Rfam assigns this 86-nucleotide RNA sequence from Medicago truncatula to the family "MIR2617 microRNA precursor family". Rfam links the family to the GO terms RISC complex and miRNA-mediated post-transcriptional gene silencing. The family has 3 seed sequences and 1,174 matches in Rfam 15.1. A search with the family's covariance model found it, with a score of 92 bits. Lineage of the source: Eukaryota > Streptophyta > rosids > Fabaceae > Medicago.

[Rfam]
RNA sequence: AUGUAGUGUAGCAUGCCUGUUUGGUGAAUUACUCUGAUGAAUAUUUUAUAUUUAAUUAUUUUGGGAUAACGGGAUGUUACACAACU
Numbered sequence: 001a002u003g004u005a006g007u008g009u010a011g012c013a014u015g016c017c018u019g020u021u022u023g024g025u026g027a028a029u030u031a032c033u034c035u036g037a038u039g040a041a042u043a044u045u046u047u048a049u050a051u052u053u054a055a056u057u058a059u060u061u062u063g064g065g066a067u068a069a070c071g072g073g074a075u076g077u078u079a080c081a082c083a084a085c086u
Stems, first nucleotide, its partner, number of pairs: 003085002006082009016073006